[Rfam]
RNA sequence: CUCUUAUCCAGAGAGACGGAGGGACUGGCCCGAUGAAGUCUCGGCAACCCGCCGGCCGGCGCCGAGGGUGGCCCGUCCGGGAGGGUGCCAACGCCAGCGGGGUGCGGCGUGGCGUCCGGCCCCGGCCGAUAAGAG
Numbered sequence: 001c002u003c004u005u006a007u008c009c010a011g012a013g014a015g016a017c018g019g020a021g022g023g024a025c026u027g028g029c030c031c032g033a034u035g036a037a038g039u040c041u042c043g044g045c046a047a048c049c050c051g052c053c054g055g056c057c058g059g060c061g062c063c064g065a066g067g068g069u070g071g072c073c074c075g076u077c078c079g080g081g082a083g084g085g086u087g088c089c090a091a092c093g094c095c096a097g098c099g100g101g102g103u104g105c106g107g108c109g110u111g112g113c114g115u116c117c118g119g120c121c122c123c124g125g126c127c128g129a130u131a132a133g134a135g
Stems, first nucleotide, its partner, number of pairs: 001135008013042005021031003025097004043089004048085002050081001052079001093127001098124006
RNA: SAM riboswitch aptamer (S box leader)